The family of this 119-nucleotide sequence from Eubacterium callanderi is "Ribosomal protein L20 leader". A search with the family's covariance model found it, with a score of 61 bits. Rfam describes the family as follows. This family is a putative r-protein leader autoregulatory structure found in B. subtilis and other low-GC Gram-positive bacteria. It is located in the 5' untranslated regions of mRNAs encoding initiation factor 3 followed by ribosomal proteins L35 and L20 (infC-rpmI-rplT). A Rho-independent transcription terminator structure that is probably involved in regulation is included at the 3' end.

RNA sequence: CAAACAAAGCAGAGGUGUCCACUUCUCACCUGGUCUUUUAACAAGGCGGGUUCAUAGCAAUUUAAGUAAUUGAUUGUUUAAUGCAGGUGGACUAUGUCUACCUGCAUUUUUGUUUAAUA
Numbered sequence: 001c002a003a004a005c006a007a008a009g010c011a012g013a014g015g016u017g018u019c020c021a022c023u024u025c026u027c028a029c030c031u032g033g034u035c036u037u038u039u040a041a042c043a044a045g046g047c048g049g050g051u052u053c054a055u056a057g058c059a060a061u062u063u064a065a066g067u068a069a070u071u072g073a074u075u076g077u078u079u080a081a082u083g084c085a086g087g088u089g090g091a092c093u094a095u096g097u098c099u100a101c102c103u104g105c106a107u108u109u110u111u112g113u114u115u116a117a118u119a
Stems, first nucleotide, its partner, number of pairs: 011026006028051003034046004082106010